U4 spliceosomal RNA: a 131-nucleotide RNA from Aotus nancymaae. The family is grouped with related families in Rfam's "U4 clan". By type it is a spliceosomal small nuclear RNA. U4 small nuclear RNA (U4 snRNA) is a component of the major U2-dependent spliceosome. Its family is annotated with spliceosomal tri-snRNP complex assembly and U4 snRNP in the Gene Ontology. It scores 69 bits against the family's covariance model.
RNA sequence: AGCUUUGCGCGGUGGCAGUAUCGUAGCCAAUGAGGUUUAUCCGAGGUGCGAUUCUUGCUAAUUGAAAAAAAAGGCAGCCACUUUCUCAGAGUAUACUACCAUGUGACUAAUUCAGGUUUAGUCAUUAGGUU
Numbered sequence: 001a002g003c004u005u006u007g008c009g010c011g012g013u014g015g016c017a018g019u020a021u022c023g024u025a026g027c028c029a030a031u032g033a034g035g036u037u038u039a040u041c042c043g044a045g046g047u048g049c050g051a052u053u054c055u056u057g058c059u060a061a062u063u064g065a066a067a068a069a070a071a072a073g074g075c076a077g078c079c080a081c082u083u084u085c086u087c088a089g090a091g092u093a094u095a096c097u098a099c100c101a102u103g104u105g106a107c108u109a110a111u112u113c114a115g116g117u118u119u120a121g122u123c124a125u126u127a128g129g130u131u
Base pairs, nucleotide, nucleotide: 020052021051022050023049024048026047027046028045034042035041084106085105087103088102091099092098093097120131121130122129123128